Small nucleolar RNA snR43: a 206-nucleotide RNA from Lodderomyces parapsilosis. Clan: SNORA9 clan. It scores 132 bits against the family's covariance model. Pairs were carried over by alignment from the consensus structure, which is taken from published work. On this family, see Balakin et al., Cell 1996: "The RNA world of the nucleolus: two major families of small RNAs defined by different box elements with related functions".
RNA sequence: CGCUCCUGUUUCUGCCUCAAAUUCGUUUCGCAUCCGUCGAAUUAUGGGUUCUGGUGAUGGAGAAGAUCAAGCCAUGAAAUUGGGCUUUUGCAUUUGAUACUUGGAAUUGCCUGGUUUCAUGGAUCGUGUGGAUGGCUUUGUAUCCGUCGUGUGGCUUUUGAAAUGACUUUGAACAUUUGAAAAGCCUGAUCGGUCCCACUAUAUUU
Numbered sequence: 001c002g003c004u005c006c007u008g009u010u011u012c013u014g015c016c017u018c019a020a021a022u023u024c025g026u027u028u029c030g031c032a033u034c035c036g037u038c039g040a041a042u043u044a045u046g047g048g049u050u051c052u053g054g055u056g057a058u059g060g061a062g063a064a065g066a067u068c069a070a071g072c073c074a075u076g077a078a079a080u081u082g083g084g085c086u087u088u089u090g091c092a093u094u095u096g097a098u099a100c101u102u103g104g105a106a107u108u109g110c111c112u113g114g115u116u117u118c119a120u121g122g123a124u125c126g127u128g129u130g131g132a133u134g135g136c137u138u139u140g141u142a143u144c145c146g147u148c149g150u151g152u153g154g155c156u157u158u159u160g161a162a163a164u165g166a167c168u169u170u171g172a173a174c175a176u177u178u179g180a181a182a183a184g185c186c187u188g189a190u191c192g193g194u195c196c197c198a199c200u201a202u203a204u205u206u
Stems, first nucleotide, its partner, number of pairs: 003062004016048004020043006072122014088106002128199004134195004149185002152182001155179001